Shown here is an 88-nucleotide sequence from Halalkalibacter wakoensis, a member of the family "c-di-GMP-I riboswitch aptamer".
[Rfam]
RNA sequence: UAAUGACAAAGGCAAACUAUUCGAAAGGGUAGGACGCAAAGCCUAGGGACUAACGUAUUGGGUAAACUAUGUUCGCCUGGCUACCAAA
Numbered sequence: 001u002a003a004u005g006a007c008a009a010a011g012g013c014a015a016a017c018u019a020u021u022c023g024a025a026a027g028g029g030u031a032g033g034a035c036g037c038a039a040a041g042c043c044u045a046g047g048g049a050c051u052a053a054c055g056u057a058u059u060g061g062g063u064a065a066a067c068u069a070u071g072u073u074c075g076c077c078u079g080g081c082u083a084c085c086a087a088a
Base pairs, nucleotide, nucleotide: 012037013036017032018031019030020029021028022027040082041081042080043079045078046077047076048073049072050071055067056066058064

Gene Ontology term of the family: cyclic-di-GMP binding.